[Rfam]
RNA sequence: ACAGUUCCAACAGUACUUUCCACACUCAUGAAGAAGCGUUGAAAGACUAUUGGUAGCUGGGA
Numbered sequence: 001a002c003a004g005u006u007c008c009a010a011c012a013g014u015a016c017u018u019u020c021c022a023c024a025c026u027c028a029u030g031a032a033g034a035a036g037c038g039u040u041g042a043a044a045g046a047c048u049a050u051u052g053g054u055a056g057c058u059g060g061g062a
Stems, first nucleotide, its partner, number of pairs: 002059003008053001010051001012048002016045005022039002025036002
RNA: mir-2229 microRNA precursor family